Shown here is a 107-nucleotide sequence, a member of the family "TPP riboswitch aptamer (THI element)".
It scores 63 bits against the family's covariance model.
RNA sequence: GGCUUUUGGUGCUGGUGCUUCAUCUCCUUAUAUGGGGUGCAGCUGAGAUUAUACAGCUUGAACCUGAUCAGGGUAAUUCCUGCGUAGGGAACCAUUCCAGAGACGAA
Numbered sequence: 001g002g003c004u005u006u007u008g009g010u011g012c013u014g015g016u017g018c019u020u021c022a023u024c025u026c027c028u029u030a031u032a033u034g035g036g037g038u039g040c041a042g043c044u045g046a047g048a049u050u051a052u053a054c055a056g057c058u059u060g061a062a063c064c065u066g067a068u069c070a071g072g073g074u075a076a077u078u079c080c081u082g083c084g085u086a087g088g089g090a091a092c093c094a095u096u097c098c099a100g101a102g103a104c105g106a107a
Stems, first nucleotide, its partner, number of pairs: 007094004011057004016051001017043003021039006063088004069082004